[Rfam]
RNA sequence: CCCAACUCGCGUGACUGACGCUCGAGAUGGGCCCACAUCGGGGAGCGCGAGUGCAUAGCGCCGCGCGUCUGGGCAUCUUCC
Numbered sequence: 001c002c003c004a005a006c007u008c009g010c011g012u013g014a015c016u017g018a019c020g021c022u023c024g025a026g027a028u029g030g031g032c033c034c035a036c037a038u039c040g041g042g043g044a045g046c047g048c049g050a051g052u053g054c055a056u057a058g059c060g061c062c063g064c065g066c067g068u069c070u071g072g073g074c075a076u077c078u079u080c081c
Stems, first nucleotide, its partner, number of pairs: 005052008015042002017069005027038003058076001060074003